[Rfam]
RNA sequence: GUCGGUUAAGUACACAGACAUAAUAAAGCGGUUCAGUAAAGCAGUCCUCAUCUCAAGUGUUAUCCGUUGAUAAUUCUUCCUUUUGAGUCUCCUUAUCGUUAUUAAUUAGAUUCUGUGCGAAACCUUUUCGCCGUAAGGCUCAGAUAUGUUGAGGUAUUAUCAAUGUCUAAUAAAAUGACUGGUUUAGUAAAAUGGUUUAAUGAGUCGAAAGGCUUUGGUUUCAUCACCCCGGACAACGGUAGCAAAGAUGUGUUUGUACAUUUUUCCGCUAUCCAGGGCGGCGGUUUUAAAACCCUGAACGAAGGCCAGAAAGUCGAAUUCACCAUUGAAGAUGGCCAGAAAGGCCCUUCUGCCGGUAACGUCUUCGCCAUCUAAGCUGCGCUUUAUUCGCUGGCGGUAGAUUUCAGCUUCGCUACCGAUGAUGGACUCUC
Numbered sequence: 001g002u003c004g005g006u007u008a009a010g011u012a013c014a015c016a017g018a019c020a021u022a023a024u025a026a027a028g029c030g031g032u033u034c035a036g037u038a039a040a041g042c043a044g045u046c047c048u049c050a051u052c053u054c055a056a057g058u059g060u061u062a063u064c065c066g067u068u069g070a071u072a073a074u075u076c077u078u079c080c081u082u083u084u085g086a087g088u089c090u091c092c093u094u095a096u097c098g099u100u101a102u103u104a105a106u107u108a109g110a111u112u113c114u115g116u117g118c119g120a121a122a123c124c125u126u127u128u129c130g131c132c133g134u135a136a137g138g139c140u141c142a143g144a145u146a147u148g149u150u151g152a153g154g155u156a157u158u159a160u161c162a163a164u165g166u167c168u169a170a171u172a173a174a175a176u177g178a179c180u181g182g183u184u185u186a187g188u189a190a191a192a193u194g195g196u197u198u199a200a201u202g203a204g205u206c207g208a209a210a211g212g213c214u215u216u217g218g219u220u221u222c223a224u225c226a227c228c229c230c231g232g233a234c235a236a237c238g239g240u241a242g243c244a245a246a247g248a249u250g251u252g253u254u255u256g257u258a259c260a261u262u263u264u265u266c267c268g269c270u271a272u273c274c275a276g277g278g279c280g281g282c283g284g285u286u287u288u289a290a291a292a293c294c295c296u297g298a299a300c301g302a303a304g305g306c307c308a309g310a311a312a313g314u315c316g317a318a319u320u321c322a323c324c325a326u327u328g329a330a331g332a333u334g335g336c337c338a339g340a341a342a343g344g345c346c347c348u349u350c351u352g353c354c355g356g357u358a359a360c361g362u363c364u365u366c367g368c369c370a371u372c373u374a375a376g377c378u379g380c381g382c383u384u385u386a387u388u389c390g391c392u393g394g395c396g397g398u399a400g401a402u403u404u405c406a407g408c409u410u411c412g413c414u415a416c417c418g419a420u421g422a423u424g425g426a427c428u429c430u431c
Stems, first nucleotide, its partner, number of pairs: 001019003005015002028230001030228003041221001044220001046218002048212002051209001062205002065202006072196001074195002079165001081163002091154005097148001099119001130139003167182003171178001234328003238324002247255002260314004265310002268307001269305002272299001274297004280293001334347002351370002354367003376395002379391003401428001403426004408421001410419003
Rfam assigns this 431-nucleotide RNA sequence from Klebsiella michiganensis to the family "cspA thermoregulator". A search with the family's covariance model found it, with a score of 181 bits. The family's RNA type in Rfam is RNA thermoregulator. The source organism's lineage runs through Bacteria, Pseudomonadota, Enterobacterales, Enterobacteriaceae and Klebsiella. Rfam links the family to the GO terms regulation of translation and response to temperature stimulus. Pairs were carried over by alignment from the consensus structure, which is taken from published work.